[Rfam]
RNA: Betaproteobacteria toxic small RNA
Organism: Lautropia mirabilis
RNA sequence: CGUCUCCUCCACCUCCUCCUUUGGUGGAUUAGCCCGCACGCUUAUCCGUGCGGGCUUUUUUC
Number, nucleotide and partner (000 for none) at each position: 001c000002g000003u000004c000005u000006c000007c000008u028009c027010c026011a025012c024013c023014u000015c000016c000017u000018c000019c000020u000021u000022u000023g013024g012025u011026g010027g009028a008029u000030u000031a000032g055033c054034c053035c052036g051037c050038a049039c048040g000041c000042u000043u000044a000045u000046c000047c000048g039049u038050g037051c036052g035053g034054g033055c032056u000057u000058u000059u000060u000061u000062c000